A member of the RNA family "Prion pseudoknot" from Sarcophilus harrisii, 34 nucleotides long. For this family Rfam cites "Pseudoknots in prion protein mRNAs confirmed by comparative sequence analysis and pattern searching" (Barrette et al., Nucleic Acids Res, 2001). The source organism's lineage runs through Eukaryota, Bilateria, Mammalia, Theria and Sarcophilus. A search with the family's covariance model found it, with a score of 42 bits. The base pairs follow the family's consensus structure, which is taken from published work. Rfam's curators write: This family represents a predicted pseudoknot structure found in prion protein mRNA. It has been suggested that the family has a possible effect in prion protein translation.
[Rfam]
RNA sequence: CCGUGGUGGAGGCUGGGGCCAUGGCGGAGGCUGG
Numbered sequence: 001c002c003g004u005g006g007u008g009g010a011g012g013c014u015g016g017g018g019c020c021a022u023g024g025c026g027g028a029g030g031c032u033g034g
Base pairs, nucleotide, nucleotide: 001024002023003022004021005020006019